The family of this 194-nucleotide RNA from Serratia ficaria is "Yersinia sRNA 251". The source organism's lineage runs through Bacteria, Pseudomonadati, Pseudomonadota, Enterobacterales and Serratia. It is annotated as an antisense RNA.
[Rfam]
RNA sequence: UGUAAGCGUUGAGCGUGCGCUGACACAGGGCGGAGCGCACGCAGUCCUGUUUAUCGAAGCGGAUGACGCCGAUCAUCUCGUCCUCUUCGAAGCGUUCCAACGCAUCGCUGAGGCCGGACUUCACGCCGCGCGGCAAAUCGCACUGGGUUACGUCACCAUUGACGAUUACCGUCACGUUCUCACCCAGGCGGGUC
Numbered sequence: 001u002g003u004a005a006g007c008g009u010u011g012a013g014c015g016u017g018c019g020c021u022g023a024c025a026c027a028g029g030g031c032g033g034a035g036c037g038c039a040c041g042c043a044g045u046c047c048u049g050u051u052u053a054u055c056g057a058a059g060c061g062g063a064u065g066a067c068g069c070c071g072a073u074c075a076u077c078u079c080g081u082c083c084u085c086u087u088c089g090a091a092g093c094g095u096u097c098c099a100a101c102g103c104a105u106c107g108c109u110g111a112g113g114c115c116g117g118a119c120u121u122c123a124c125g126c127c128g129c130g131c132g133g134c135a136a137a138u139c140g141c142a143c144u145g146g147g148u149u150a151c152g153u154c155a156c157c158a159u160u161g162a163c164g165a166u167u168a169c170c171g172u173c174a175c176g177u178u179c180u181c182a183c184c185c186a187g188g189c190g191g192g193u194c
Base pairs, nucleotide, nucleotide: 002054003053004052005051006050007049008048014041015040016039017038018037019036061078062077063076064075065074066073083112084111085110088107093102094101095100113193114192115191117189119188120187121186125134126133127132137166138165139164140163144158145157146156171183172182174180